[Rfam]
RNA sequence: GAAACGUCUACCCCGCACCGGGUGACCGGGCAAGACGGGGACCUUCGCCCAGUAAUGAGCGAAUCAC
Numbered sequence: 001g002a003a004a005c006g007u008c009u010a011c012c013c014c015g016c017a018c019c020g021g022g023u024g025a026c027c028g029g030g031c032a033a034g035a036c037g038g039g040g041a042c043c044u045u046c047g048c049c050c051a052g053u054a055a056u057g058a059g060c061g062a063a064u065c066a067c
Base pairs, nucleotide, nucleotide: 011040012039013038014037015036018029019028020027021026044063045062046061047060048059050057051056

Shown here is a 67-nucleotide RNA sequence from Nonomuraea cypriaca, a member of the family "Transposase-2 RNA". Pairs were carried over by alignment from the consensus structure, which is taken from published work.